[Rfam]
RNA sequence: ACGGAUGGCCGGGUGAUCGCGGCCGCGCAAGCGGUCGAGGAAAGUCCGGACUCCACAAGGCACGGUGCCGGGUAACGCCCGGCGGGGGCAACCCCAGGGAAAGCGCCACAGAGAACAGACGGCCACGCAUGCGUGGUCACGGUGAAACGGUGGGGUAAGAGCCCACCGCGCGACUGGCAACAGAAGCGGCACGGCAAGCCCCACCGGGAGCAAUGCCAAAUAGGGGCCUCGUGCCGGAGCGAUCCGGCAGGGACGCCUGACCCGAGAGGCCCGGGUUGGCAGCCAGAGGGUCGUCGGUAACGACGGCUUUAGACGAAUGAUCAUCCAACCGCAGUAAUGCGGGGGACAAAAUCCGGCUUAUAGGCCAUCCGUGUCA
Numbered sequence: 001a002c003g004g005a006u007g008g009c010c011g012g013g014u015g016a017u018c019g020c021g022g023c024c025g026c027g028c029a030a031g032c033g034g035u036c037g038a039g040g041a042a043a044g045u046c047c048g049g050a051c052u053c054c055a056c057a058a059g060g061c062a063c064g065g066u067g068c069c070g071g072g073u074a075a076c077g078c079c080c081g082g083c084g085g086g087g088g089c090a091a092c093c094c095c096a097g098g099g100a101a102a103g104c105g106c107c108a109c110a111g112a113g114a115a116c117a118g119a120c121g122g123c124c125a126c127g128c129a130u131g132c133g134u135g136g137u138c139a140c141g142g143u144g145a146a147a148c149g150g151u152g153g154g155g156u157a158a159g160a161g162c163c164c165a166c167c168g169c170g171c172g173a174c175u176g177g178c179a180a181c182a183g184a185a186g187c188g189g190c191a192c193g194g195c196a197a198g199c200c201c202c203a204c205c206g207g208g209a210g211c212a213a214u215g216c217c218a219a220a221u222a223g224g225g226g227c228c229u230c231g232u233g234c235c236g237g238a239g240c241g242a243u244c245c246g247g248c249a250g251g252g253a254c255g256c257c258u259g260a261c262c263c264g265a266g267a268g269g270c271c272c273g274g275g276u277u278g279g280c281a282g283c284c285a286g287a288g289g290g291u292c293g294u295c296g297g298u299a300a301c302g303a304c305g306g307c308u309u310u311a312g313a314c315g316a317a318u319g320a321u322c323a324u325c326c327a328a329c330c331g332c333a334g335u336a337a338u339g340c341g342g343g344g345g346a347c348a349a350a351a352u353c354c355g356g357c358u359u360a361u362a363g364g365c366c367a368u369c370c371g372u373g374u375c376a
Stems, first nucleotide, its partner, number of pairs: 001372010011361001012325007020037007042359003046356005051210004058258004063206005068082005083097001084095004098201002103199002105195003120141002122137006149167006168190001169188003174183003214281004224272006250263003254259001289308008